[Rfam]
RNA sequence: AACCCUUCUCGGCCUUUAUGGCUUUGAUCAAGUGUAGUAUCUGUUCUAGCAAGCUUAAUAUCUUGCUCACCUCUACGGAGGUGCAAAUAUUAAACAAUUUUUGCGAUGGGGUCUAGUCGUGUUGAGGCUUGCCAAAGACACGAUUAGACAAGAAUGUGCUUGGUUACGGCCAUGUCGCAUUUACCCUCU
Numbered sequence: 001a002a003c004c005c006u007u008c009u010c011g012g013c014c015u016u017u018a019u020g021g022c023u024u025u026g027a028u029c030a031a032g033u034g035u036a037g038u039a040u041c042u043g044u045u046c047u048a049g050c051a052a053g054c055u056u057a058a059u060a061u062c063u064u065g066c067u068c069a070c071c072u073c074u075a076c077g078g079a080g081g082u083g084c085a086a087a088u089a090u091u092a093a094a095c096a097a098u099u100u101u102u103g104c105g106a107u108g109g110g111g112u113c114u115a116g117u118c119g120u121g122u123u124g125a126g127g128c129u130u131g132c133c134a135a136a137g138a139c140a141c142g143a144u145u146a147g148a149c150a151a152g153a154a155u156g157u158g159c160u161u162g163g164u165u166a167c168g169g170c171c172a173u174g175u176c177g178c179a180u181u182u183a184c185c186c187u188c189u
Base pairs, nucleotide, nucleotide: 007027008026011023012022013021014020048067049066050065051064052063053062068083069082070081071080072079073078111149112148113147114146115145116144117143118142126133127132152182153181154180155179156178157177159174161172162171163170164169
RNA: U2 spliceosomal RNA
Organism: Entamoeba invadens